Shown here is a 149-nucleotide sequence from Populus alba, a member of the family "Plastid-psbA-1 3UTR RNA".
From the family's description: Plastid psbA-1 is a non-coding RNA (ncRNA) present in plastids.
A search with the family's covariance model found it, with a score of 55 bits.
The family's RNA type in Rfam is cis-regulatory element.
[Rfam]
RNA sequence: UCAAAGUUCCAUCUAUAAAUGGGUAAGACUUUUGUAAAUGGAUAAGGUUUUUGUCUUUAAUGUGUACGGGCUUUUGAAAAAAAAAAAAAAAGAAGAAGAAGAAGAAAUUGCUAAUUUCUUGUUCUAUCAAGAGGGUUGGCAUUGCUUCU
Dot-bracket structure: .......(((((.........................))))).........................................................(((((.(((....(..(((((........)))))..)....))).)))))
Numbered sequence: 001u002c003a004a005a006g007u008u009c010c011a012u013c014u015a016u017a018a019a020u021g022g023g024u025a026a027g028a029c030u031u032u033u034g035u036a037a038a039u040g041g042a043u044a045a046g047g048u049u050u051u052u053g054u055c056u057u058u059a060a061u062g063u064g065u066a067c068g069g070g071c072u073u074u075u076g077a078a079a080a081a082a083a084a085a086a087a088a089a090a091a092g093a094a095g096a097a098g099a100a101g102a103a104g105a106a107a108u109u110g111c112u113a114a115u116u117u118c119u120u121g122u123u124c125u126a127u128c129a130a131g132a133g134g135g136u137u138g139g140c141a142u143u144g145c146u147u148c149u
Stems, first nucleotide, its partner, number of pairs: 008042005100149005106143003113136001116133005